[Rfam]
Rfam assigns this 89-nucleotide RNA from Scyliorhinus torazame to the family "Vault RNA". For this family Rfam cites "Evolution of Vault RNAs" (Stadler et al., Mol Biol Evol, 2009). Rfam classes the family as a non-coding RNA gene.
Nucleotides: 089
Stems, first nucleotide, its partner, number of pairs: 002084006013073003019068003026055002029052001
Number, partner (000 for none) and nucleotide at each position: 001000g002084c003083g004082u005081c006080a007079g008000c009000u010000u011000u012000c013073g014072c015071u016000c017000a018000c019068u020067g021066g022000c023000u024000a025000c026055u027054u028000c029052a030000c031000a032000g033000c034000g035000u036000u037000a038000a039000c040000u041000u042000a043000a044000u045000u046000a047000u048000a049000a050000g051000u052029u053000c054027a055026a056000a057000c058000c059000u060000g061000u062000c063000u064000c065000a066021c067020c068019a069000u070000a071015a072014g073013c074000g075000c076000u077000g078000c079007c080006u081005g082004a083003c084002g085000u086000u087000u088000u089000a